[Rfam]
RNA sequence: CCCUUAUCUUUUAAAAGUUUCAAGUUGGUCCCUUAUCUUUAUUUUAGGUUUCAAGUUGGUCCCUUCCGUCAAUUUUUUAACUAUUUCCGUUAAAUUUGGACACAUGGCAAACUAAUAUGGACACGUGGCAUACUUGAACAUGUGACACGUGUCCAGAAUUAACGGUAACAGUUAAAAAAUUGACGGAAGGGACCAACUUGAAACCUAAAAAAAAGAUAAGGGACCAACUUGAAACCUAAAAUAAAGAUAAGGGA
Numbered sequence: 001c002c003c004u005u006a007u008c009u010u011u012u013a014a015a016a017g018u019u020u021c022a023a024g025u026u027g028g029u030c031c032c033u034u035a036u037c038u039u040u041a042u043u044u045u046a047g048g049u050u051u052c053a054a055g056u057u058g059g060u061c062c063c064u065u066c067c068g069u070c071a072a073u074u075u076u077u078u079a080a081c082u083a084u085u086u087c088c089g090u091u092a093a094a095u096u097u098g099g100a101c102a103c104a105u106g107g108c109a110a111a112c113u114a115a116u117a118u119g120g121a122c123a124c125g126u127g128g129c130a131u132a133c134u135u136g137a138a139c140a141u142g143u144g145a146c147a148c149g150u151g152u153c154c155a156g157a158a159u160u161a162a163c164g165g166u167a168a169c170a171g172u173u174a175a176a177a178a179a180u181u182g183a184c185g186g187a188a189g190g191g192a193c194c195a196a197c198u199u200g201a202a203a204c205c206u207a208a209a210a211a212a213a214a215g216a217u218a219a220g221g222g223a224c225c226a227a228c229u230u231g232a233a234a235c236c237u238a239a240a241a242u243a244a245a246g247a248u249a250a251g252g253g254a
Base pairs, nucleotide, nucleotide: 002252003251004250005249006248007247008246023229024228025227027225028224029223031221032220033219034218035217036216037215038214039213040212042210043209045207046206047205